This 129-nucleotide RNA from Halomonas heilongjiangensis belongs to the Rfam family "TPP riboswitch aptamer (THI element)". The base pairs follow the family's consensus structure, which is taken from published work. Rfam's curators write: Vitamin B(1) in its active form thiamin pyrophosphate (TPP) is an essential coenzyme that is synthesised by coupling of pyrimidine and thiazole moieties in bacteria. The previously detected thiamin-regulatory element, thi box was extended, resulting in a new, highly conserved RNA secondary structure, the THI element, which is widely distributed in eubacteria and also occurs in some archaea. Analysis of operon structures identified a large number of new candidate thiamin-regulated genes, mostly transporters, in various prokaryotic organisms. The THI element is a riboswitch that directly binds to TPP to regulate gene expression through a variety of mechanisms in archaea, bacteria and eukaryotes. through a variety of mechanisms in archaea, bacteria and eukaryotes. Tandem TPP riboswitches have been reported where both TPP riboswitches respond independently to TPP. The structure of TPP riboswitch has been reported for Escherichia coli and Arabidopsis thaliana. A search with the family's covariance model found it, with a score of 72 bits.
[Rfam]
RNA sequence: CGACGCUUGACGGGGUGCCGGUGAAUCCGGCUGAGAUGGCGCAGGUCGGCCGCGAGGUCACCACCAGCGCUGGUCCCGUGGAACCUGAUCCGGUUAACGCCGGCGUAGGGAAUCAGGCGGUGGGCCAGC
Numbered sequence: 001c002g003a004c005g006c007u008u009g010a011c012g013g014g015g016u017g018c019c020g021g022u023g024a025a026u027c028c029g030g031c032u033g034a035g036a037u038g039g040c041g042c043a044g045g046u047c048g049g050c051c052g053c054g055a056g057g058u059c060a061c062c063a064c065c066a067g068c069g070c071u072g073g074u075c076c077c078g079u080g081g082a083a084c085c086u087g088a089u090c091c092g093g094u095u096a097a098c099g100c101c102g103g104c105g106u107a108g109g110g111a112a113u114c115a116g117g118c119g120g121u122g123g124g125c126c127a128g129c
Stems, first nucleotide, its partner, number of pairs: 006117005011078004016072001017031005038071005084109004090103004